[Rfam]
RNA sequence: CUCACGCGGGCUUAUGCGUGCUGCUUUUGCACGCCUUCCGGUGUCCGGACGUCGAUCAUCCCAGAUGGAGAUCGUUGCCGGGCUCAAUGCCUGCGGUGGAAUAACCGGAUCAAGGACGAAAGAC
Dot-bracket structure: (.(.(((((((....(((.(.........).)))........((((((.............................)))))).....)))))))).)..........................